[Rfam]
RNA sequence: AAUUUCGGGUAAUCGCGGUUUGUUUUAUGCAAACUGAGGAAAGUCCAGGCUUGCACAAACUGAGAUGUUUGUAGUGAUCGUACUUACUGAAAAAAUAAGGUAAGGCAUUUACAUUAUUGUAGAUGACGGCGAACAAAAGAGCUAACGUUUUUAUAAACCAUGCUUGAGUAGUUCUUAAAAGUGCCACAGUGACGAAGCAAUACGGGAAACGGUAUUGAUGGAACGCGGUAAACCCUGCGAGCAGGUAACCCAAACUUUGGUAGGGGCGCUUCAUGACGGAAAUGAACUAAUCAUGGGGGCGAGUUUUACUCGGAGAUAGAUGAUUACCACCGAGACCAGUACCUAGCUGGUUGACGUACGGAACUUGGCUUAUAGAG
Numbered sequence: 001a002a003u004u005u006c007g008g009g010u011a012a013u014c015g016c017g018g019u020u021u022g023u024u025u026u027a028u029g030c031a032a033a034c035u036g037a038g039g040a041a042a043g044u045c046c047a048g049g050c051u052u053g054c055a056c057a058a059a060c061u062g063a064g065a066u067g068u069u070u071g072u073a074g075u076g077a078u079c080g081u082a083c084u085u086a087c088u089g090a091a092a093a094a095a096u097a098a099g100g101u102a103a104g105g106c107a108u109u110u111a112c113a114u115u116a117u118u119g120u121a122g123a124u125g126a127c128g129g130c131g132a133a134c135a136a137a138a139g140a141g142c143u144a145a146c147g148u149u150u151u152u153a154u155a156a157a158c159c160a161u162g163c164u165u166g167a168g169u170a171g172u173u174c175u176u177a178a179a180a181g182u183g184c185c186a187c188a189g190u191g192a193c194g195a196a197g198c199a200a201u202a203c204g205g206g207a208a209a210c211g212g213u214a215u216u217g218a219u220g221g222a223a224c225g226c227g228g229u230a231a232a233c234c235c236u237g238c239g240a241g242c243a244g245g246u247a248a249c250c251c252a253a254a255c256u257u258u259g260g261u262a263g264g265g266g267c268g269c270u271u272c273a274u275g276a277c278g279g280a281a282a283u284g285a286a287c288u289a290a291u292c293a294u295g296g297g298g299g300c301g302a303g304u305u306u307u308a309c310u311c312g313g314a315g316a317u318a319g320a321u322g323a324u325u326a327c328c329a330c331c332g333a334g335a336c337c338a339g340u341a342c343c344u345a346g347c348u349g350g351u352u353g354a355c356g357u358a359c360g361g362a363a364c365u366u367g368g369c370u371u372a373u374a375g376a377g
Stems, first nucleotide, its partner, number of pairs: 004377003007373001008328007016036006041371003045368005050245005055072006078240005083104006105127001106125008128235002131174004139165004147158004181233002183229003198217006205210001249265003269298007300312005334352007

A member of the RNA family "Bacterial RNase P class B" from Ligilactobacillus ubinensis, 377 nucleotides long. Clan: RNaseP clan. The literature on the family includes a 1998 paper in Annu Rev Biochem by Frank and Pace, "Ribonuclease P: unity and diversity in a tRNA processing ribozyme".